[Rfam]
Nucleotides: 111
Stems, first nucleotide, its partner, number of pairs: 004110001006108003022064004026059004031054003037050005
Number, partner (000 for none) and nucleotide at each position: 001000u002000g003000u004110g005000a006108g007107g008106g009000u010000g011000a012000u013000g014000a015000g016000u017000u018000g019000c020000a021000c022064a023063c024062u025061g026059g027058u028057g029056g030000a031054g032053c033052c034000a035000a036000a037050g038049c039048a040047u041046c042000g043000g044000u045000c046041g047040a048039u049038g050037u051000g052033g053032g054031c055000g056029c057028c058027g059026c060000u061025c062024a063023g064022u065000a066000u067000c068000a069000c070000c071000u072000u073000g074000g075000u076000g077000a078000c079000a080000g081000a082000a083000c084000c085000a086000g087000g088000u089000g090000c091000a092000c093000a094000g095000g096000g097000g098000c099000c100000a101000u102000c103000u104000g105000a106008c107007u108006c109000u110004c111000a
The family of this 111-nucleotide RNA sequence from Ornithorhynchus anatinus is "Small nucleolar RNA SNORD67". snoRNA HBII-166 belongs to the C/D family of snoRNAs. It is one of the family's seed sequences. Its family is annotated with nucleolus and RNA processing in the Gene Ontology. On this family, see Huttenhofer et al., EMBO J 2001: "RNomics: an experimental approach that identifies 201 candidates for novel, small, non-messenger RNAs in mouse". Pairs were carried over by alignment from the consensus structure. The family's RNA type in Rfam is C/D-box small nucleolar RNA.